This 89-nucleotide RNA sequence from Phrynocephalus forsythii belongs to the Rfam family "mir-132 microRNA precursor family". Gene Ontology terms of the family: RISC complex and miRNA-mediated post-transcriptional gene silencing. A reference for the family is Chen et al. (2005), "The developmental miRNA profiles of zebrafish as determined by small RNA cloning", Genes Dev.

RNA sequence: GUGUGUCCGCACCUUGGCUUUAGACUGCUUACUGCGAAUCGCUUCCGGGAGAAACAGUAACAGUCCACAGUCACGGCUACUGACGGCUG
Numbered sequence: 001g002u003g004u005g006u007c008c009g010c011a012c013c014u015u016g017g018c019u020u021u022a023g024a025c026u027g028c029u030u031a032c033u034g035c036g037a038a039u040c041g042c043u044u045c046c047g048g049g050a051g052a053a054a055c056a057g058u059a060a061c062a063g064u065c066c067a068c069a070g071u072c073a074c075g076g077c078u079a080c081u082g083a084c085g086g087c088u089g
Stems, first nucleotide, its partner, number of pairs: 012076002015073004023065005029060005